[Rfam]
RNA sequence: UAUUAAAAAGGCAAUGGUGUCUGCCUAAUUGAACCGCUGCAAAGCUGAUGGCGCCUACUUCAAA
Numbered sequence: 001u002a003u004u005a006a007a008a009a010g011g012c013a014a015u016g017g018u019g020u021c022u023g024c025c026u027a028a029u030u031g032a033a034c035c036g037c038u039g040c041a042a043a044g045c046u047g048a049u050g051g052c053g054c055c056u057a058c059u060u061c062a063a064a
Stems, first nucleotide, its partner, number of pairs: 010025004016055006036045003

Description: The record is a 64-nucleotide sequence from Mucilaginibacter straminoryzae, which matches "Fluoride riboswitch aptamer (crcB RNA motif)" in Rfam. A search with the family's covariance model found it, with a score of 54 bits.